[Rfam]
RNA sequence: CCUUCUUCUCGUUUGCCUUUUUCUGCUUCUGCUGCAUGAUCUCCGAGUCCCUGGGGGUAGAGAUGAUGGGGCACUGGGAGGUACCAGAGGGCAAAAAGGA
Numbered sequence: 001c002c003u004u005c006u007u008c009u010c011g012u013u014u015g016c017c018u019u020u021u022u023c024u025g026c027u028u029c030u031g032c033u034g035c036a037u038g039a040u041c042u043c044c045g046a047g048u049c050c051c052u053g054g055g056g057g058u059a060g061a062g063a064u065g066a067u068g069g070g071g072c073a074c075u076g077g078g079a080g081g082u083a084c085c086a087g088a089g090g091g092c093a094a095a096a097a098g099g100a
Stems, first nucleotide, its partner, number of pairs: 006100004012095010024083007031072003035068003039064005046058001048056003
RNA: mir-1282 microRNA precursor family